[Rfam]
RNA: HIV Ribosomal frameshift signal
Organism: Lentivirus humimdef1
RNA sequence: GGGAAGAUCUGGCCUUCCCACAAGGGAAGGCCAGGGAAUCUUCCC
Numbered sequence: 001g002g003g004a005a006g007a008u009c010u011g012g013c014c015u016u017c018c019c020a021c022a023a024g025g026g027a028a029g030g031c032c033a034g035g036g037a038a039u040c041u042u043c044c045c
Base pairs, nucleotide, nucleotide: 001045002044003043004042005041006040007039008035009034010033011032012031013030014029015028016027017026018025